RNA sequence: CAUCAUAGCCGGACGGGGUCAAUGGGCGAUCAAGACGGCCCAUGGCCUAGGUUGGUGACUUCCAUUGCACUUUGUAGGGGCGGCCACCUUAGGUCAACCCAAGUGGUUGAGCCUAAGACCCACUUUUUGUUAGUGGAGGCUUGUGUUAGCACAACCCCUAU
Numbered sequence: 001c002a003u004c005a006u007a008g009c010c011g012g013a014c015g016g017g018g019u020c021a022a023u024g025g026g027c028g029a030u031c032a033a034g035a036c037g038g039c040c041c042a043u044g045g046c047c048u049a050g051g052u053u054g055g056u057g058a059c060u061u062c063c064a065u066u067g068c069a070c071u072u073u074g075u076a077g078g079g080g081c082g083g084c085c086a087c088c089u090u091a092g093g094u095c096a097a098c099c100c101a102a103g104u105g106g107u108u109g110a111g112c113c114u115a116a117g118a119c120c121c122a123c124u125u126u127u128u129g130u131u132a133g134u135g136g137a138g139g140c141u142u143g144u145g146u147u148a149g150c151a152c153a154a155c156c157c158c159u160a161u
Stems, first nucleotide, its partner, number of pairs: 012119001014117001016048006023042005049089003053086001056082002059079003063074001091114003094110003098106002134160003138156001142153004
RNA: U1 spliceosomal RNA